[Rfam]
Shown here is a 398-nucleotide sequence from Methylobacterium haplocladii, a member of the family "Bacterial RNase P class A".
RNA sequence: UCAGUCGGCCGGGCGGCCGCUCCAUGCUCGCAUGGGGAGGAAAGUCCGGGCUCCAUGGAGAGACGGUGCCGGAUAACGUCCGGCGGGGGCGACCCCAGGGACAGUGCCACAGAGAGCAGACCGCCUUGCUUUGCAAGGUAAGGGUGAAAGGGUGCGGUAAGAGCGCACCGCGGACGCGGCAACGCGGACGGCACGGCAAACCCCACCGGGUGCAAGACCGAAUAGGGGCGACACGCUCAUCCCCGCGAGGGGACGAGCAGGCCCGCUCUCCAGGCCCGUCGCCCGGGUUGGUUGCUUGAGGCGGUCGGCGACGAUCGUCCCAGAGGAAUGGCCGCCACGUCCGGGUGCCGCAAGGCGCCCGGGCCCUACAGAACCCGGCUUAAAGGCCGGCUGAUUCC
Numbered sequence: 001u002c003a004g005u006c007g008g009c010c011g012g013g014c015g016g017c018c019g020c021u022c023c024a025u026g027c028u029c030g031c032a033u034g035g036g037g038a039g040g041a042a043a044g045u046c047c048g049g050g051c052u053c054c055a056u057g058g059a060g061a062g063a064c065g066g067u068g069c070c071g072g073a074u075a076a077c078g079u080c081c082g083g084c085g086g087g088g089g090c091g092a093c094c095c096c097a098g099g100g101a102c103a104g105u106g107c108c109a110c111a112g113a114g115a116g117c118a119g120a121c122c123g124c125c126u127u128g129c130u131u132u133g134c135a136a137g138g139u140a141a142g143g144g145u146g147a148a149a150g151g152g153u154g155c156g157g158u159a160a161g162a163g164c165g166c167a168c169c170g171c172g173g174a175c176g177c178g179g180c181a182a183c184g185c186g187g188a189c190g191g192c193a194c195g196g197c198a199a200a201c202c203c204c205a206c207c208g209g210g211u212g213c214a215a216g217a218c219c220g221a222a223u224a225g226g227g228g229c230g231a232c233a234c235g236c237u238c239a240u241c242c243c244c245g246c247g248a249g250g251g252g253a254c255g256a257g258c259a260g261g262c263c264c265g266c267u268c269u270c271c272a273g274g275c276c277c278g279u280c281g282c283c284c285g286g287g288u289u290g291g292u293u294g295c296u297u298g299a300g301g302c303g304g305u306c307g308g309c310g311a312c313g314a315u316c317g318u319c320c321c322a323g324a325g326g327a328a329u330g331g332c333c334g335c336c337a338c339g340u341c342c343g344g345g346u347g348c349c350g351c352a353a354g355g356c357g358c359c360c361g362g363g364c365c366c367u368a369c370a371g372a373a374c375c376c377g378g379c380u381u382a383a384a385g386g387c388c389g390g391c392u393g394a395u396u397c398c
Stems, first nucleotide, its partner, number of pairs: 001394010012336007020037007042381003046378005051212001053210002060269001062267001064208005069083005084098001085096004099203002104201002106197003121143002123139007151169006170192001171190002175186004216293004226284006261275003265271001300319008

A search with the family's covariance model found it, with a score of 287 bits.
The family's consensus secondary structure is taken from published work.
The source organism's lineage runs through Bacteria, Pseudomonadati, Hyphomicrobiales, Methylobacteriaceae and Methylobacterium.